RNA: SAM (S-adenosyl methionine) riboswitch aptamer
RNA sequence: GAUCGAGAAGUUCGACGUGAAGCCCCUUGGCUUGUCGACUGGCAACCGCGUAUCGCACACGGUGCCUCCAAGGGAAGAUCGGCCCCUGGGUAAAAGCCCAGGCGGAAGCUAGCGAC
Numbered sequence: 001g002a003u004c005g006a007g008a009a010g011u012u013c014g015a016c017g018u019g020a021a022g023c024c025c026c027u028u029g030g031c032u033u034g035u036c037g038a039c040u041g042g043c044a045a046c047c048g049c050g051u052a053u054c055g056c057a058c059a060c061g062g063u064g065c066c067u068c069c070a071a072g073g074g075a076a077g078a079u080c081g082g083c084c085c086c087u088g089g090g091u092a093a094a095a096g097c098c099c100a101g102g103c104g105g106a107a108g109c110u111a112g113c114g115a116c
Base pairs, nucleotide, nucleotide: 001080002079003078004077009040012038013037014036015035016034021032022031041066042065043064046062047061048060050058051057083105084104085102086101087100088099089098090097091096
Dot-bracket structure: ((((....(..(((((....((........)).))))).)(((..(((.((.....)).))).)))..........))))..(((((((((....))))))).))...........